RNA sequence: CUAGUCAAAGAUAGAAACGCAAUGAAUAUCAGAUGAUAUUCUAGAACUGGUAGGUAGCCCAGUCGUCUAAAUAUUAUUUAUUUAGGUAAGUAACCUUCCCCUCCGGGUUGUCCAUUCUUUGAGAAAAAUAU
Numbered sequence: 001c002u003a004g005u006c007a008a009a010g011a012u013a014g015a016a017a018c019g020c021a022a023u024g025a026a027u028a029u030c031a032g033a034u035g036a037u038a039u040u041c042u043a044g045a046a047c048u049g050g051u052a053g054g055u056a057g058c059c060c061a062g063u064c065g066u067c068u069a070a071a072u073a074u075u076a077u078u079u080a081u082u083u084a085g086g087u088a089a090g091u092a093a094c095c096u097u098c099c100c101c102u103c104c105g106g107g108u109u110g111u112c113c114a115u116u117c118u119u120u121g122a123g124a125a126a127a128a129u130a131u
Stems, first nucleotide, its partner, number of pairs: 005122007046063005065087009098107003
Dot-bracket structure: ....(((((((..................................(((((........))))).(((((((((.....)))))))))..........(((....)))........))))))).........
Description:
azaaromatic riboswitch aptamer (yjdF RNA): a 131-nucleotide RNA sequence from Anaerococcus nagyae. Taxonomically the source falls in Anaerococcus (Bacteria, Bacillati, Bacillota, Tissierellales). A search with the family's covariance model found it, with a score of 67 bits.